Shown here is a 156-nucleotide RNA sequence from Geodermatophilus ruber, a member of the family "c-di-AMP riboswitch aptamer (ydaO/yuaA leader)". Rfam describes the family as follows. This family represents a conserved RNA structure found upstream of the ydaO and yuaA genes in Bacillus subtilis and related genes in other bacteria.

RNA sequence: CCCCGGAUGCCGCCGAGCCGGCCCCUCGAUGAGGGACGCCGGGCCGGGGACCCACCGCAGCACCGGGGUGAAGCGCGCACGGCCUGAGCCGGGUGCGCCGGGCGACUUCCCGCCCGAACCCGUCAGCUAACUCGGUAGGCGGCCCGUGGAAGAACG
Numbered sequence: 001c002c003c004c005g006g007a008u009g010c011c012g013c014c015g016a017g018c019c020g021g022c023c024c025c026u027c028g029a030u031g032a033g034g035g036a037c038g039c040c041g042g043g044c045c046g047g048g049g050a051c052c053c054a055c056c057g058c059a060g061c062a063c064c065g066g067g068g069u070g071a072a073g074c075g076c077g078c079a080c081g082g083c084c085u086g087a088g089c090c091g092g093g094u095g096c097g098c099c100g101g102g103c104g105a106c107u108u109c110c111c112g113c114c115c116g117a118a119c120c121c122g123u124c125a126g127c128u129a130a131c132u133c134g135g136u137a138g139g140c141g142g143c144c145c146g147u148g149g150a151a152g153a154a155c156g
Stems, first nucleotide, its partner, number of pairs: 011141004018042005043136006053065001066121003074097004100115004